[Rfam]
RNA: Small nucleolar RNA SNORA70
RNA sequence: CUGCAGCUUAUUAAGCCGACCAGUUUAGUUGAUGUACUGUCCUGGUGUGCAAGGGCUGCAGACAUAAAUUCUCUGGUUUGUGUAUGUGUCUAGCUGUGAAGUGCCAGACGGUGAAAGGGACCACUGAAACAAAG
Number, nucleotide and partner (000 for none) at each position: 001c000002u051003g050004c049005a048006g000007c000008u000009u000010a000011u000012u000013a000014a000015g000016c000017c000018g000019a046020c045021c044022a043023g000024u000025u000026u039027a038028g037029u000030u000031g000032a000033u000034g000035u000036a000037c028038u027039g026040u000041c000042c000043u022044g021045g020046u019047g000048u005049g004050c003051a002052a000053g000054g000055g000056c000057u000058g000059c000060a000061g000062a000063c000064a000065u000066a000067a000068a000069u000070u000071c000072u000073c000074u000075g122076g121077u120078u000079u000080g000081u000082g000083u000084a000085u000086g000087u110088g109089u108090c107091u106092a000093g000094c000095u000096g000097u000098g000099a000100a000101g000102u000103g000104c000105c000106a091107g090108a089109c088110g087111g000112u000113g000114a000115a000116a000117g000118g000119g000120a077121c076122c075123a000124c000125u000126g000127a000128a000129a000130c000131a000132a000133a000134g000